[Rfam]
RNA sequence: AUGAUUCGGGUCUGUGAUUGAAAGGCCAUGCCAGCUACGGGCGAAGGGUCCCACGUAAACCGCCGAAGAGCAGUAGGCGGCGAUCAUGGCGUAGUUUAGAAGUAAGUCCUCGGAGAAACUCCGGUCAAGGCGAGUGUGGGGGCAAAGAUCAGGUCAGCCGGGUCAU
Numbered sequence: 001a002u003g004a005u006u007c008g009g010g011u012c013u014g015u016g017a018u019u020g021a022a023a024g025g026c027c028a029u030g031c032c033a034g035c036u037a038c039g040g041g042c043g044a045a046g047g048g049u050c051c052c053a054c055g056u057a058a059a060c061c062g063c064c065g066a067a068g069a070g071c072a073g074u075a076g077g078c079g080g081c082g083a084u085c086a087u088g089g090c091g092u093a094g095u096u097u098a099g100a101a102g103u104a105a106g107u108c109c110u111c112g113g114a115g116a117a118a119c120u121c122c123g124g125u126c127a128a129g130g131c132g133a134g135u136g137u138g139g140g141g142g143c144a145a146a147g148a149u150c151a152g153g154u155c156a157g158c159c160g161g162g163u164c165a166u
Base pairs, nucleotide, nucleotide: 001166002165003164004163005162006161007160008159009158012157013156014155015151016150017149018148019147028137029136030135031041033096034095035094036093037092038091039090050089051088055084060079063076087144108130109129110128111123112122113121114120115119
RNA: raiA RNA